[Rfam]
RNA sequence: CAUGUACGGGGGGCGCAGUCAUCUGGGGAGUAGCCAGCCGUCGAUCGCGACGGGCCUUUGCGUCAACAUACUUGGUCGAGAGACCAUGGCGCGAAGGGAGCGGUGUACAGCCGCUCGGGCGAGACCAAUGGCGCCAUGCUUUCCGCUCCUGGCCGGGCGGGAGGGCGUGGUGUCGUUGAGUCGAUCGUCGCCC
Numbered sequence: 001c002a003u004g005u006a007c008g009g010g011g012g013g014c015g016c017a018g019u020c021a022u023c024u025g026g027g028g029a030g031u032a033g034c035c036a037g038c039c040g041u042c043g044a045u046c047g048c049g050a051c052g053g054g055c056c057u058u059u060g061c062g063u064c065a066a067c068a069u070a071c072u073u074g075g076u077c078g079a080g081a082g083a084c085c086a087u088g089g090c091g092c093g094a095a096g097g098g099a100g101c102g103g104u105g106u107a108c109a110g111c112c113g114c115u116c117g118g119g120c121g122a123g124a125c126c127a128a129u130g131g132c133g134c135c136a137u138g139c140u141u142u143c144c145g146c147u148c149c150u151g152g153c154c155g156g157g158c159g160g161g162a163g164g165g166c167g168u169g170g171u172g173u174c175g176u177u178g179a180g181u182c183g184a185u186c187g188u189c190g191c192c193c
Stems, first nucleotide, its partner, number of pairs: 038053003055097004060092006073086005
Shown here is a 193-nucleotide sequence from Sphingomonas turrisvirgatae, a member of the family "Manganese Mn2+ riboswitch aptamer (yybP-ykoY)". It scores 56 bits against the family's covariance model. Taxonomically the source falls in Sphingomonas (Bacteria, Pseudomonadota, Alphaproteobacteria, Sphingomonadales). Rfam describes the family as follows. This RNA was originally discovered in E. coli during a large scale screen and was named SraF. The family was later found to exist upstream of related families of protein genes in many bacteria, including the the yybP and ykoK genes in B. subtilis. The base pairs follow the family's consensus structure.